Rfam assigns this 86-nucleotide RNA from Bagarius yarrelli to the family "mir-143 microRNA precursor family".
[Rfam]
RNA sequence: AGUCCUCAGGCCCAAGGUGCAGUGUUGCAUCUCUGGUCAGUUUGAGGAGUCUGAGAUGAAGCACUGUAGCAUGGGACGAGAGACAU
Dot-bracket structure: ..........(((..(.(((((((((.((((((.((((........)).)).)))))).))))))))).)..)))...........

Background: The literature on the family includes a 2005 paper in Genes Dev by Chen et al., "The developmental miRNA profiles of zebrafish as determined by small RNA cloning". Its family is annotated with RISC complex and miRNA-mediated post-transcriptional gene silencing in the Gene Ontology.